[Rfam]
RNA sequence: UAUUCCUCACUCCAGACCUUGACCUGAUCGUCUGUGUAUCGCUACGUAAACGUUUGCCUGCACACACCCUGAUGCUAAAAAUCAUCAUUGCAUCACGUCGGGAAAACGACACAGAACGACAGGAAGGGGUCAAUGGCCGAUACGCUUUCAAAUUAGCGUGGAAUUUUGUCCGAUCUUGGGGCAAAGGGGAAGAGUAAAAAUGUGCAUCAUGCUAAAUCUCGGAAGAUUUUUACGCUAUUCUGUGCAAAAAUGAUCGUACUCACUUUUUAUGUUGGGAUAAUCAGGGGGAAAAUUGAUGGAUACAAAUUUAAGGUAUUCGCUGACAACAACGAUUAUUGUCCUGGGCUUGAUUGUUGCUGCAGGAUUAACCGCAGUAUUGCACUAAUUU
Numbered sequence: 001u002a003u004u005c006c007u008c009a010c011u012c013c014a015g016a017c018c019u020u021g022a023c024c025u026g027a028u029c030g031u032c033u034g035u036g037u038a039u040c041g042c043u044a045c046g047u048a049a050a051c052g053u054u055u056g057c058c059u060g061c062a063c064a065c066a067c068c069c070u071g072a073u074g075c076u077a078a079a080a081a082u083c084a085u086c087a088u089u090g091c092a093u094c095a096c097g098u099c100g101g102g103a104a105a106a107c108g109a110c111a112c113a114g115a116a117c118g119a120c121a122g123g124a125a126g127g128g129g130u131c132a133a134u135g136g137c138c139g140a141u142a143c144g145c146u147u148u149c150a151a152a153u154u155a156g157c158g159u160g161g162a163a164u165u166u167u168g169u170c171c172g173a174u175c176u177u178g179g180g181g182c183a184a185a186g187g188g189g190a191a192g193a194g195u196a197a198a199a200a201u202g203u204g205c206a207u208c209a210u211g212c213u214a215a216a217u218c219u220c221g222g223a224a225g226a227u228u229u230u231u232a233c234g235c236u237a238u239u240c241u242g243u244g245c246a247a248a249a250a251u252g253a254u255c256g257u258a259c260u261c262a263c264u265u266u267u268u269a270u271g272u273u274g275g276g277a278u279a280a281u282c283a284g285g286g287g288g289a290a291a292a293u294u295g296a297u298g299g300a301u302a303c304a305a306a307u308u309u310a311a312g313g314u315a316u317u318c319g320c321u322g323a324c325a326a327c328a329a330c331g332a333u334u335a336u337u338g339u340c341c342u343g344g345g346c347u348u349g350a351u352u353g354u355u356g357c358u359g360c361a362g363g364a365u366u367a368a369c370c371g372c373a374g375u376a377u378u379g380c381a382c383u384a385a386u387u388u
Base pairs, nucleotide, nucleotide: 015131016130017129018128019127020126021029022028031123032122033121034120035119041094043092044059046057047056048055049054076090077089078088098114100112143194145192146191148162149161151159169187170186175181236304264283268279269278270277